U1 spliceosomal RNA: a 160-nucleotide RNA from Solanum commersonii.
RNA sequence: UGAUAGACCUGGACGGGUCAAUGUGCGAUUAAUAAGACCCAUGGUCUAGGUUGGUGACCUCCACUGCACUUUGGAGGAGUGCCUGCCUAAGGUCGGUCCAAGUGGUUGAUCCUAUGUCAUACUUUGUUGUUGUGAAGGUCUGUGUUCGCAAUUAUUUACU
Numbered sequence: 001u002g003a004u005a006g007a008c009c010u011g012g013a014c015g016g017g018u019c020a021a022u023g024u025g026c027g028a029u030u031a032a033u034a035a036g037a038c039c040c041a042u043g044g045u046c047u048a049g050g051u052u053g054g055u056g057a058c059c060u061c062c063a064c065u066g067c068a069c070u071u072u073g074g075a076g077g078a079g080u081g082c083c084u085g086c087c088u089a090a091g092g093u094c095g096g097u098c099c100a101a102g103u104g105g106u107u108g109a110u111c112c113u114a115u116g117u118c119a120u121a122c123u124u125u126g127u128u129g130u131u132g133u134g135a136a137g138g139u140c141u142g143u144g145u146u147c148g149c150a151a152u153u154a155u156u157u158a159c160u
Base pairs, nucleotide, nucleotide: 012118013117014116015115016046017045018044019043020042022041023040025038048088049087050086052085054082055081056080059077060076061074062073090113091112092111093109094108095107097105098104134159136157137156138155139154143150144149
About the family: U1 is a small nuclear RNA (snRNA) component of the spliceosome (involved in pre-mRNA splicing).